A member of the RNA family "Flavivirus capsid hairpin cHP" from Orthoflavivirus louisense, 48 nucleotides long.
The organism belongs to Orthoflavivirus louisense, within Viruses.
It is one of the family's seed sequences.
For this family Rfam cites "RNA secondary structure in the coding region of dengue virus type 2 directs translation start codon selection and is required for viral replication" (Clyde and Harris, J Virol, 2006).
Rfam describes the family as follows. cHP is a conserved RNA hairpin structure identified within the capsid coding region of several Flavivirus genomes. These positive strand RNA genomes are translated as a single polypeptide and subsequently cleaved into constituent proteins, the first of which is the capsid protein.
RNA sequence: AUGUCUAAAAAACCAGGAAAACCCGGUAGAAACCGGGUUGUCAAUAUG
Numbered sequence: 001a002u003g004u005c006u007a008a009a010a011a012a013c014c015a016g017g018a019a020a021a022c023c024c025g026g027u028a029g030a031a032a033c034c035g036g037g038u039u040g041u042c043a044a045u046a047u048g
Base pairs, nucleotide, nucleotide: 017042018041020039021038022037023036024035025034